This 69-nucleotide RNA from Takifugu rubripes belongs to the Rfam family "mir-196 microRNA precursor family". A reference for the family is Lagos-Quintana et al. (2003), "New microRNAs from mouse and human", RNA. The organism belongs to Takifugu, within Eukaryota.
RNA sequence: UGUGAUAUAGGUAGUUUCAAGUUGUUGGGCUGAACUCUUGUGAUCACAGGAACCUGAAACUGCCUGAGU
Numbered sequence: 001u002g003u004g005a006u007a008u009a010g011g012u013a014g015u016u017u018c019a020a021g022u023u024g025u026u027g028g029g030c031u032g033a034a035c036u037c038u039u040g041u042g043a044u045c046a047c048a049g050g051a052a053c054c055u056g057a058a059a060c061u062g063c064c065u066g067a068g069u
Base pairs, nucleotide, nucleotide: 005069006068008066009065010064011063012062013061014060015059016058017057021053022052023051025049026048027047029045